[Rfam]
RNA: L31-Actinobacteria ribosomal protein leader
RNA sequence: CCGGUUCCGGUUCACGCUUGUGCAUCAUUAACGCAGGCGACCCGGCGGCC
Numbered sequence: 001c002c003g004g005u006u007c008c009g010g011u012u013c014a015c016g017c018u019u020g021u022g023c024a025u026c027a028u029u030a031a032c033g034c035a036g037g038c039g040a041c042c043c044g045g046c047g048g049c050c
Stems, first nucleotide, its partner, number of pairs: 003050003007045004015039008